[Rfam]
RNA: Clostridiales-1 RNA
RNA sequence: GUAUGUAUGCAUAUGCAUACAUGUAUGGAUAUGCAUGCUUGUAUGCAUAUGCAUUCAUGUAUGCAUAUGCAUUCAUGUAUGAAUAUGCAUGCAUGUAUGCAUAUGCAUGCUUGUAUGUAUGCGUGUAUGUAUGCAUGUAUGUAUGGAUAUGCAUGCAUGUAUUGCAUAU
Dot-bracket structure: (((((((..((((..((((((((.(((.(((.(((((....))))).))).))).))))))))..))))....(((((((..((((..........................))))..)))))))...(((((((...((((....))))...)))))))..)))))))